[Rfam]
Shown here is a 587-nucleotide part of an RNA from Mycobacterium lacus, a member of the family "Bacterial large subunit ribosomal RNA".
RNA sequence: CGCGCGGCAGGACGAAAAGACCCCGGGACCUUCACUACAACUUGGUAUUGGUGUUCGGUACGGUUUGUGUAGGAUAGGUGGGAGACUGUGAAACCUCAACGCCAGUUGGGGUGGAGUCGUUGUUGAAAUACCACUCUGAUCGUAUUGGACACCUAACGUCGAACCCUGGAUCGGGUUCACGGACAGUGCCUGGCGGGUAGUUUAACUGGGGCGGUUGCCUCCUAAAAUGUAACGGAGGCGCCCAAAGGUUCCCUCAACCUGGACGGCAAUCAGGUGGCGAGUGUAAAUGCACAAGGGAGCUUGACUGCGAGACCUACACGUCAAGCAGGGACGAAAGUCGGGAUUAGUGAUCCGGCACCCCCGAGUGGAAGGGGUGUCGCUCAACGGAUAAAAGGUACCCCGGGGAUAACAGGCUGAUCUUCCCCAAGAGUCCAUAUCGACGGGAUGGUUUGGCACCUCGAUGUCGGCUCGUCGCAUCCUGGGGCUGGAGCAGGUCCCAAGGGUUGGGCUGUUCGCCCAUUAAAGCGGCACGCGAGCUGGGUUUAGAACGUCGUGAGACAGUUCGGUCUCUAUCCGCCGCGCGCGUC
Number, nucleotide and partner (000 for none) at each position: 001c583002g582003c581004g580005c579006g578007g577008c576009a000010g575011g574012a573013c000014g570015a569016a000017a000018a000019g000020a000021c000022c404023c403024c402025g401026g400027g399028a396029c395030c394031u393032u392033c000034a201035c200036u199037a198038c000039a000040a000041c193042u192043u000044g190045g189046u188047a187048u000049u000050g153051g152052u151053g150054u149055u148056c147057g146058g145059u144060a143061c142062g141063g140064u139065u138066u000067g136068u000069g000070u000071a000072g000073g000074a000075u000076a000077g135078g134079u133080g132081g131082g000083a000084g118085a117086c116087u000088g000089u000090g000091a000092a000093a112094c111095c110096u109097c108098a107099a106100c105101g000102c000103c000104a000105g100106u099107u098108g097109g096110g095111g094112u093113g000114g000115a000116g086117u085118c084119g000120u000121u000122g000123u000124u000125g000126a000127a000128a000129u000130a000131c081132c080133a079134c078135u077136c067137u000138g065139a064140u063141c062142g061143u060144a059145u058146u057147g056148g055149a054150c053151a052152c051153c050154u000155a000156a000157c181158g180159u179160c000161g178162a177163a176164c175165c174166c173167u000168g000169g000170a000171u000172c000173g166174g165175g164176u163177u162178c161179a159180c158181g157182g000183a000184c000185a000186g000187u047188g046189c045190c044191u000192g042193g041194c000195g000196g000197g000198u037199a036200g035201u034202u000203u000204a216205a215206c214207u213208g000209g000210g000211g000212c000213g207214g206215u205216u204217g239218c238219c237220u236221c235222c234223u000224a000225a000226a000227a000228u000229g000230u000231a000232a000233c000234g222235g221236a220237g219238g218239c217240g385241c000242c342243c341244a000245a000246a000247g000248g300249u299250u298251c297252c296253c295254u280255c279256a000257a275258c274259c273260u272261g271262g270263a000264c000265g000266g000267c000268a000269a000270u262271c261272a260273g259274g258275u257276g000277g000278c000279g255280a254281g290282u289283g000284u000285a000286a000287a000288u000289g282290c281291a000292c000293a000294a000295g253296g252297g251298a250299g249300c248301u000302u000303g000304a000305c328306u327307g326308c325309g000310a000311g322312a321313c320314c000315u000316a000317c000318a000319c000320g313321u312322c311323a000324a000325g308326c307327a306328g305329g000330g339331a338332c337333g000334a000335a000336a000337g332338u331339c330340g000341g243342g242343a000344u000345u000346a000347g000348u000349g000350a000351u000352c000353c379354g378355g377356c376357a375358c374359c373360c000361c372362c371363g000364a000365g000366u000367g000368g000369a000370a000371g362372g361373g359374g358375u357376g356377u355378c354379g353380c000381u000382c000383a000384a000385c240386g000387g000388a000389u000390a000391a000392a032393a031394g030395g029396u028397a000398c000399c027400c026401c025402g024403g023404g022405g000406a000407u000408a000409a000410c000411a000412g000413g454414c453415u452416g000417a451418u448419c447420u000421u445422c444423c443424c442425c000426a000427a000428g438429a437430g000431u000432c000433c000434a000435u000436a000437u429438c428439g000440a000441c000442g424443g423444g422445a421446u000447g419448g418449u000450u000451u417452g415453g414454c413455a000456c000457c000458u000459c000460g000461a000462u000463g000464u000465c540466g538467g537468c536469u535470c532471g529472u528473c527474g526475c525476a000477u000478c503479c502480u000481g498482g497483g496484g495485c494486u493487g000488g000489a000490g000491c000492a000493g486494g485495u484496c483497c482498c481499a000500a000501g000502g479503g478504u000505u519506g518507g517508g516509c515510u000511g000512u000513u000514c000515g509516c508517c507518c506519a505520u000521u000522a000523a000524a000525g475526c474527g473528g472529c471530a000531c000532g470533c000534g000535a469536g468537c467538u466539g000540g465541g000542u000543u000544u000545a000546g564547a563548a562549c561550g559551u558552c557553g000554u000555g000556a000557g552558a551559c550560a000561g549562u548563u547564c546565g000566g000567u000568c000569u015570c014571u000572a000573u012574c011575c010576g008577c007578c006579g005580c004581g003582c002583g001584c000585g000586u000587c000

The match comes from Rfam's covariance-model search (2757 bits).